RNA sequence: GCUAGGGACGAUUCAGUCCAUGUUGUAUGAUGUGUUAUGGAGCCAAGUCCCUGGUUUUUUAGGGAGAACCUGCUUGGGAAGCUGGAUUUCACAUGAUAUUAAUGGAUUUUACUAAGGC
Numbered sequence: 001g002c003u004a005g006g007g008a009c010g011a012u013u014c015a016g017u018c019c020a021u022g023u024u025g026u027a028u029g030a031u032g033u034g035u036u037a038u039g040g041a042g043c044c045a046a047g048u049c050c051c052u053g054g055u056u057u058u059u060u061a062g063g064g065a066g067a068a069c070c071u072g073c074u075u076g077g078g079a080a081g082c083u084g085g086a087u088u089u090c091a092c093a094u095g096a097u098a099u100u101a102a103u104g105g106a107u108u109u110u111a112c113u114a115a116g117g118c
Stems, first nucleotide, its partner, number of pairs: 001118003049064005